[Rfam]
RNA sequence: ACGACCUUACUUGAACAGGAUCUGUUCUAUAGGUUGUACAUCCGUUGCCAUUGACACAAUGGAGACACACACAACAAUCUGGAAGAUCACACAAUGCCACGUGGCUACAGUGUGAAUACUGGCUUGGGGACCAAACAGGGCUCCAUCAGCCCUAGAGGAUCGCUGUCAUAGAGCCAACGGCUGUUGAGAUGGCCACAUGGCAGUCUGACAGAUA
Number, nucleotide and partner (000 for none) at each position: 001a037002c036003g034004a000005c033006c032007u031008u000009a000010c000011u000012u000013g027014a026015a025016c024017a023018g022019g000020a000021u000022c018023u017024g016025u015026u014027c013028u000029a000030u000031a007032g006033g005034u003035u000036g002037u001038a000039c000040a000041u000042c000043c000044g066045u065046u000047g000048c062049c061050a060051u059052u058053g000054a000055c000056a000057c000058a052059a051060u050061g049062g048063a000064g000065a045066c044067a000068c000069a000070c000071a000072c000073a000074a000075c000076a000077a213078u212079c211080u210081g209082g000083a000084a000085g000086a000087u000088c000089a000090c000091a000092c000093a000094a000095u000096g201097c200098c199099a198100c000101g196102u195103g194104g193105c192106u191107a190108c000109a164110g163111u162112g161113u000114g000115a000116a000117u000118a000119c000120u000121g151122g150123c149124u148125u145126g144127g143128g142129g141130a000131c139132c138133a000134a000135a000136c000137a000138g132139g131140g000141c129142u128143c127144c126145a125146u000147c000148a124149g123150c122151c121152c000153u000154a000155g000156a000157g000158g000159a000160u000161c112162g111163c110164u109165g000166u187167c186168a185169u000170a000171g000172a000173g182174c180175c000176a000177a000178c000179g000180g174181c000182u173183g000184u000185u168186g167187a166188g000189a000190u107191g106192g105193c104194c103195a102196c101197a000198u099199g098200g097201c096202a000203g000204u000205c000206u000207g000208a000209c081210a080211g079212a078213u077214a000
The record is a 214-nucleotide sequence from Amborella trichopoda, which matches "Plant small nucleolar RNA U3" in Rfam.
Its family is annotated with nucleolus and RNA processing in the Gene Ontology.
Rfam's curators write: Small nucleolar RNAs (snoRNAs) are involved in the processing and modification of rRNA in the nucleolus. There are two main classes of snoRNAs: the box C/D class, and the box H/ACA class. U3 snoRNA is a member of the box C/D class.
Taxonomically the source falls in Amborella (Eukaryota, Tracheophyta, Euphyllophyta, Amborellaceae).
The family has 24 seed sequences and 3,759 matches in Rfam 15.1.